[Rfam]
Small nucleolar RNA SNORA17: a 134-nucleotide sequence from Rattus norvegicus. A search with the family's covariance model found it, with a score of 74 bits. The literature on the family includes a 1997 paper in J Mol Biol by Ofengand and Bakin, "Mapping to nucleotide resolution of pseudouridine residues in large subunit ribosomal RNAs from representative eukaryotes, prokaryotes, archaebacteria, mitochondria and chloroplasts". Its Rfam clan is "SNORA17 clan". Its family is annotated with nucleolus and RNA processing in the Gene Ontology.

RNA sequence: CCUGGUCCUAGAAGCUUUGCAGGUGUGGCUGCUGUGUCACAUGUGUGUCAUUUGAUGGCAAAGAGGAGACAGGCUGUGUCUAGGUCAUAGUGUUCUGACCUAUGAACUUCUGAGUAGUUAGAAGGUAUGAUGGC
Numbered sequence: 001c002c003u004g005g006u007c008c009u010a011g012a013a014g015c016u017u018u019g020c021a022g023g024u025g026u027g028g029c030u031g032c033u034g035u036g037u038c039a040c041a042u043g044u045g046u047g048u049c050a051u052u053u054g055a056u057g058g059c060a061a062a063g064a065g066g067a068g069a070c071a072g073g074c075u076g077u078g079u080c081u082a083g084g085u086c087a088u089a090g091u092g093u094u095c096u097g098a099c100c101u102a103u104g105a106a107c108u109u110c111u112g113a114g115u116a117g118u119u120a121g122a123a124g125g126u127a128u129g130a131u132g133g134c
Base pairs, nucleotide, nucleotide: 003060004059006057008054010052011051014048015047019046020045021044024041025040026039027038028037029036068131070129071128073126074125075124077122084115088112089111090110092107093106094105095104